[Rfam]
RNA sequence: AACGUACCUGGGCCUGGUAACUCCACCACCGUUGGCUGUUGCAAUGCGCCAACGGAGGCAGAGUUCCCGUUCCUAGAGGCGAA
Numbered sequence: 001a002a003c004g005u006a007c008c009u010g011g012g013c014c015u016g017g018u019a020a021c022u023c024c025a026c027c028a029c030c031g032u033u034g035g036c037u038g039u040u041g042c043a044a045u046g047c048g049c050c051a052a053c054g055g056a057g058g059c060a061g062a063g064u065u066c067c068c069g070u071u072c073c074u075a076g077a078g079g080c081g082a083a
Base pairs, nucleotide, nucleotide: 003081004080005079008076009075010074011073012072016068017067019065020064021063022062023061026058027057029055030054031053032052033051034050035049036048
Dot-bracket structure: ..(((..(((((...((.(((((..((.((((((((...........)))))))).))..))))).))...)))))..)))..

Notes: Rfam assigns this 83-nucleotide sequence from Galleria mellonella to the family "mir-2765 microRNA precursor family". Taxonomically the source falls in Galleria (Eukaryota, Eumetazoa, Pterygota, Heteroneura). The base pairs follow the family's consensus structure, which was predicted with RNAalifold.